A member of the RNA family "Group II catalytic intron D1-D4-5" from Ruminiclostridium sufflavum, 217 nucleotides long. The family has 139 seed sequences and 720 matches in Rfam 15.1. For this family Rfam cites "The ins and outs of group II introns" (Bonen and Vogel, Trends Genet, 2001). Pairs were carried over by alignment from the consensus structure.
RNA sequence: UCUAACUGGUAUUCCGAUGAGUGGAAUGAUAGGGUAACGCCUUAAAACGCUCCCCUGAUACUACGACAAAAGGGUGGUUUUGCAACGAAUCUGCCCUGAUGCAGCUCGUUGAAGUCGGCUAUAUGCACUCGCUAUAUCGACAGCGUUCAAGCGAAUGCACCGUUAUGGCAAAAGCAAACCAGAGGUGGUUGUGAGUGUUAGGCCGGGGGUCUAUAAA
Numbered sequence: 001u002c003u004a005a006c007u008g009g010u011a012u013u014c015c016g017a018u019g020a021g022u023g024g025a026a027u028g029a030u031a032g033g034g035u036a037a038c039g040c041c042u043u044a045a046a047a048c049g050c051u052c053c054c055c056u057g058a059u060a061c062u063a064c065g066a067c068a069a070a071a072g073g074g075u076g077g078u079u080u081u082g083c084a085a086c087g088a089a090u091c092u093g094c095c096c097u098g099a100u101g102c103a104g105c106u107c108g109u110u111g112a113a114g115u116c117g118g119c120u121a122u123a124u125g126c127a128c129u130c131g132c133u134a135u136a137u138c139g140a141c142a143g144c145g146u147u148c149a150a151g152c153g154a155a156u157g158c159a160c161c162g163u164u165a166u167g168g169c170a171a172a173a174g175c176a177a178a179c180c181a182g183a184g185g186u187g188g189u190u191g192u193g194a195g196u197g198u199u200a201g202g203c204c205g206g207g208g209g210u211c212u213a214u215a216a217a
Stems, first nucleotide, its partner, number of pairs: 019052005031043004053209004063109004067101002071097007079089002116205005125198006131169002136166002174192003178189004
Description: Group II introns are found in rRNA, tRNA and mRNA of organelles in fungi, plants and protists, and also in mRNA in bacteria.